[Rfam]
RNA sequence: UUAUAGUAAAAGCUGAGUCCAAGUGUAUGACCUUGGAGCGGGGGAUUAUUAUGGGGUGAAUCACGUGACUCUUUCACGUGUAGGGCUUACACCUACUGCCCGAAUCCGUCAACUAACCUCGUAAGCUAAGAAAGGUGGAUAU
Numbered sequence: 001u002u003a004u005a006g007u008a009a010a011a012g013c014u015g016a017g018u019c020c021a022a023g024u025g026u027a028u029g030a031c032c033u034u035g036g037a038g039c040g041g042g043g044g045a046u047u048a049u050u051a052u053g054g055g056g057u058g059a060a061u062c063a064c065g066u067g068a069c070u071c072u073u074u075c076a077c078g079u080g081u082a083g084g085g086c087u088u089a090c091a092c093c094u095a096c097u098g099c100c101c102g103a104a105u106c107c108g109u110c111a112a113c114u115a116a117c118c119u120c121g122u123a124a125g126c127u128a129a130g131a132a133a134g135g136u137g138g139a140u141a142u
Stems, first nucleotide, its partner, number of pairs: 011127004018037006038122006048052001054107003062080004083101004
RNA: c-di-AMP riboswitch aptamer (ydaO/yuaA leader)
Organism: Desulfosporosinus sp. I2